[Rfam]
The family of this 113-nucleotide sequence from Otolemur garnettii is "Y RNA". It is annotated as a non-coding RNA gene. Rfam describes the family as follows. Y RNAs are components of the Ro ribonucleoprotein particle (Ro RNP), in association with Ro60 and La proteins. The Y RNAs and Ro60 and La proteins are well conserved, but the function of the Ro RNP is not known. In humans the RNA component can be one of four small RNAs -- hY1, hY3, hY4 and hY5. Pairs were carried over by alignment from the consensus structure, which is taken from published work. A search with the family's covariance model found it, with a score of 57 bits. Lineage of the source: Eukaryota > Opisthokonta > Eumetazoa > Sarcopterygii > Otolemur.
Nucleotides: 113
Base pairs, nucleotide, nucleotide: 001109002108003107004106006104007103008102010101011100014097015096016092017091018090019089020088021087037073038072040070
Number, partner (000 for none) and nucleotide at each position: 001109g002108g003107u004106u005000u006104g007103u008102c009000u010101a011100a012000a013000g014097g015096u016092a017091g018090u019089g020088a021087a022000u023000u024000a025000u026000u027000a028000c029000c030000u031000c032000a033000a034000c035000u036000c037073a038072u039000u040070g041000u042000u043000c044000a045000c046000a047000g048000c049000c050000a051000g052000u053000u054000a055000c056000a057000a058000a059000u060000c061000a062000a063000a064000u065000u066000u067000c068000u069000u070040c071000a072038a073037u074000u075000c076000u077000u078000u079000c080000c081000c082000u083000u084000c085000u086000u087021u088020u089019c090018a091017c092016u093000a094000c095000u096015g097014c098000a099000u100011u101010u102008g103007a104006c105000u106004a107003g108002c109001c110000u111000u112000u113000u